Rfam assigns this 88-nucleotide RNA sequence from Callithrix jacchus to the family "mir-515 microRNA precursor family".
The literature on the family includes a 2005 paper in Nat Genet by Bentwich et al., "Identification of hundreds of conserved and nonconserved human microRNAs".
RNA sequence: UCUCACGCUGUGGCCCUCCAAAGGGAAGUGCUUUCUGCUGUCUGAAAAAAAAAGAAAGGCCUUCCCUUUAGAGUGUUACAGUUUGAGA
Dot-bracket structure: (((((.((((((((.(((.(((((((((..(((((...(............).)))))..))))))))).))).)))))))).)))))
Clan: mir-290 clan.